[Rfam]
RNA sequence: CGAGCCGGGCGGACGGCCGCGUGGAGGUCCCUGUGGAUCUCCCCGAGGAACGUCCGGGCUCCACAGGGCAGGGUGGUGGCUAACGGCCACCCGGGGUGACCCGCGGGACAGUGCCACAGAAAGCAAACCGCCGAGAGCUCCGGCUUUCGGUAAGGGUGAAACGGUGGUGUAAGAGACCACCAGCGCCUGAGGUGACUCAGGCGGCUAGGUAAACCCCACCCGGAGCAAGGUCAAGAGGAGCCGCUUGGCGACAGGCGGCUCUGCGCGGACGUUCGAGGGCUGCUCGCCCGAGUCCGCGGGUAGACCGCACGAGGCCGGCGGCAACGCCGGCCCUAGAUGGAUGGCCGUCGCCGGAGGGUUCGCAAGACCCCUCCGGAACAGAACCCGGCGUAUAGCCCUGCUCGUCUG
Numbered sequence: 001c002g003a004g005c006c007g008g009g010c011g012g013a014c015g016g017c018c019g020c021g022u023g024g025a026g027g028u029c030c031c032u033g034u035g036g037a038u039c040u041c042c043c044c045g046a047g048g049a050a051c052g053u054c055c056g057g058g059c060u061c062c063a064c065a066g067g068g069c070a071g072g073g074u075g076g077u078g079g080c081u082a083a084c085g086g087c088c089a090c091c092c093g094g095g096g097u098g099a100c101c102c103g104c105g106g107g108a109c110a111g112u113g114c115c116a117c118a119g120a121a122a123g124c125a126a127a128c129c130g131c132c133g134a135g136a137g138c139u140c141c142g143g144c145u146u147u148c149g150g151u152a153a154g155g156g157u158g159a160a161a162c163g164g165u166g167g168u169g170u171a172a173g174a175g176a177c178c179a180c181c182a183g184c185g186c187c188u189g190a191g192g193u194g195a196c197u198c199a200g201g202c203g204g205c206u207a208g209g210u211a212a213a214c215c216c217c218a219c220c221c222g223g224a225g226c227a228a229g230g231u232c233a234a235g236a237g238g239a240g241c242c243g244c245u246u247g248g249c250g251a252c253a254g255g256c257g258g259c260u261c262u263g264c265g266c267g268g269a270c271g272u273u274c275g276a277g278g279g280c281u282g283c284u285c286g287c288c289c290g291a292g293u294c295c296g297c298g299g300g301u302a303g304a305c306c307g308c309a310c311g312a313g314g315c316c317g318g319c320g321g322c323a324a325c326g327c328c329g330g331c332c333c334u335a336g337a338u339g340g341a342u343g344g345c346c347g348u349c350g351c352c353g354g355a356g357g358g359u360u361c362g363c364a365a366g367a368c369c370c371c372u373c374c375g376g377a378a379c380a381g382a383a384c385c386c387g388g389c390g391u392a393u394a395g396c397c398c399u400g401c402u403c404g405u406c407u408g
Stems, first nucleotide, its partner, number of pairs: 001404005007398004011393001012349007020045002023042006050391003054388005059225004066285004071221005076090005091105001092103004106216002111214002113210003128155002130151009163181006183205001184203008229306004265297006277289004313332008

A member of the RNA family "Bacterial RNase P class A" from Streptomyces sporangiiformans, 408 nucleotides long. Rfam describes the family as follows. Ribonuclease P (RNase P) is a ubiquitous endoribonuclease, found in archaea, bacteria and eukarya as well as chloroplasts and mitochondria. It scores 298 bits against the family's covariance model. NCBI's taxonomy places the organism under Bacteria, Actinomycetota, Kitasatosporales, Streptomycetaceae, Streptomyces.